[Rfam]
RNA sequence: CUGUUUCUUGCUUUAACCGUGUUUGAACAGAGCAG
Numbered sequence: 001c002u003g004u005u006u007c008u009u010g011c012u013u014u015a016a017c018c019g020u021g022u023u024u025g026a027a028c029a030g031a032g033c034a035g
Base pairs, nucleotide, nucleotide: 001035002034003033004032005031007030008029010028012027013026014025015024016023017021

Rfam assigns this 35-nucleotide RNA from Myotis myotis to the family "Iron response element I". It is annotated as a cis-regulatory element. NCBI's taxonomy places the organism under Eukaryota, Metazoa, Euteleostomi, Eutheria, Myotis. Rfam 15.1 lists 6,829 matches to the family in 599 species. The family's consensus secondary structure is taken from published work. Rfam links the family to the GO term response to iron ion.